RNA sequence: UAGGGGGAUGGCGAUGGAGAUCGCCAAAACCGCCUUUUGUUUUGCCUAAAGUCUAAAAUCUGGUGAUUUGAAACCUAAAAGCUGAAAACAUAAGGCUGAUGGCUCCUACGAUUCC
Numbered sequence: 001u002a003g004g005g006g007g008a009u010g011g012c013g014a015u016g017g018a019g020a021u022c023g024c025c026a027a028a029a030c031c032g033c034c035u036u037u038u039g040u041u042u043u044g045c046c047u048a049a050a051g052u053c054u055a056a057a058a059u060c061u062g063g064u065g066a067u068u069u070g071a072a073a074c075c076u077a078a079a080a081g082c083u084g085a086a087a088a089c090a091u092a093a094g095g096c097u098g099a100u101g102g103c104u105c106c107u108a109c110g111a112u113u114c115c
Base pairs, nucleotide, nucleotide: 010025011024012023013022016106017105018104019103021101032096033095034094035093
RNA: Fluoride riboswitch aptamer (crcB RNA motif)